[Rfam]
RNA sequence: AAAGGAGGAGUCCAAAGGGAUCGCAUUGAUCCCGUUUCAGUAUUUUCAGAUUUCAAUCCAUUGAUUCGUUAUGUAGAUUCAUAUGCUAUUGAGUUUUGGAUCAUGCUAUCCCUUCGGAUUCUUCCUU
Number, nucleotide and partner (000 for none) at each position: 001a000002a127003a126004g125005g124006a123007g000008g121009a120010g119011u118012c117013c116014a000015a114016a113017g112018g111019g110020a109021u108022c000023g106024c105025a104026u103027u000028g102029a101030u100031c099032c098033c000034g000035u000036u000037u000038c000039a000040g000041u000042a000043u000044u000045u000046u000047c000048a000049g000050a000051u000052u000053u000054c000055a000056a000057u000058c000059c000060a000061u000062u000063g000064a000065u000066u000067c000068g000069u000070u000071a000072u000073g000074u000075a000076g000077a000078u000079u000080c000081a000082u000083a000084u000085g000086c000087u000088a000089u000090u000091g000092a000093g000094u000095u000096u000097u000098g032099g031100a030101u029102c028103a026104u025105g024106c023107u000108a021109u020110c019111c018112c017113u016114u015115c000116g013117g012118a011119u010120u009121c008122u000123u006124c005125c004126u003127u002
RNA: mir-393 microRNA precursor family
Organism: Dorcoceras hygrometricum